The record is a 141-nucleotide sequence from Solibacillus silvestris, which matches "c-di-AMP riboswitch aptamer (ydaO/yuaA leader)" in Rfam.
RNA sequence: AAACUAACAAAGCCAAAUCUCAAUCAUUGAGAACGGAGGACCCGAUCUUUUGGGGUUAAUUCUGCAUUGCAGAAGGGAUGAUAUAUACUCUUUCGCCAUCCUAACCCGUCAGCUAACUUCGUCGGCUAAUGCGGAGGAGGU
Numbered sequence: 001a002a003a004c005u006a007a008c009a010a011a012g013c014c015a016a017a018u019c020u021c022a023a024u025c026a027u028u029g030a031g032a033a034c035g036g037a038g039g040a041c042c043c044g045a046u047c048u049u050u051u052g053g054g055g056u057u058a059a060u061u062c063u064g065c066a067u068u069g070c071a072g073a074a075g076g077g078a079u080g081a082u083a084u085a086u087a088c089u090c091u092u093u094c095g096c097c098a099u100c101c102u103a104a105c106c107c108g109u110c111a112g113c114u115a116a117c118u119u120c121g122u123c124g125g126c127u128a129a130u131g132c133g134g135a136g137g138a139g140g141u
Base pairs, nucleotide, nucleotide: 011127012126013125014124018032019031020030033122034121035120036119037118038117043052044051053107054106055105061073062072063071064070076101077100078099079098

NCBI's taxonomy places the organism under Bacteria, Bacillota, Caryophanales, Solibacillus, Solibacillus silvestris.